RNA sequence: CGCCAAGUCCGAGGCCCCGUGACCGUCGGGGUCUGGUGCACAAAGGGA
Numbered sequence: 001c002g003c004c005a006a007g008u009c010c011g012a013g014g015c016c017c018c019g020u021g022a023c024c025g026u027c028g029g030g031g032u033c034u035g036g037u038g039c040a041c042a043a044a045g046g047g048a
Stems, first nucleotide, its partner, number of pairs: 013033007
This 48-nucleotide RNA from Streptomyces sp. CNT372 belongs to the Rfam family "raiA-hairpin RNA". NCBI's taxonomy places the organism under Bacteria, Actinomycetota, Kitasatosporales, Streptomycetaceae, Streptomyces. The sequence is in the family's curated seed alignment.